[Rfam]
RNA sequence: GCAUGGAAUAAUUCUGUGUUACUCUGUCAGUAGUAAAUGCAGCCAGACACCAUGCUAAAGUAACAUUUCACACCUCUCUUACUAUGGUGUAGUGCUGUCCUGUGCCUCACCUACCGGGGAGUGAAUACAUAC
Numbered sequence: 001g002c003a004u005g006g007a008a009u010a011a012u013u014c015u016g017u018g019u020u021a022c023u024c025u026g027u028c029a030g031u032a033g034u035a036a037a038u039g040c041a042g043c044c045a046g047a048c049a050c051c052a053u054g055c056u057a058a059a060g061u062a063a064c065a066u067u068u069c070a071c072a073c074c075u076c077u078c079u080u081a082c083u084a085u086g087g088u089g090u091a092g093u094g095c096u097g098u099c100c101u102g103u104g105c106c107u108c109a110c111c112u113a114c115c116g117g118g119g120a121g122u123g124a125a126u127a128c129a130u131a132c
Stems, first nucleotide, its partner, number of pairs: 001055006014042006067125003071121001073119004086111004092105003
RNA: Small nucleolar RNA SNORA15
Organism: Esox lucius